[Rfam]
RNA sequence: UUCCCCACGUCUCCUUAUCACUCUUCCAGCCAGCUUUCUUCUUGCAAGUGUUGGACGGAGAACUGAUAAGGGUAUGUGGGUGA
Numbered sequence: 001u002u003c004c005c006c007a008c009g010u011c012u013c014c015u016u017a018u019c020a021c022u023c024u025u026c027c028a029g030c031c032a033g034c035u036u037u038c039u040u041c042u043u044g045c046a047a048g049u050g051u052u053g054g055a056c057g058g059a060g061a062a063c064u065g066a067u068a069a070g071g072g073u074a075u076g077u078g079g080g081u082g083a
Stems, first nucleotide, its partner, number of pairs: 012072009022062001024060004030054002
RNA: mir-184 microRNA precursor family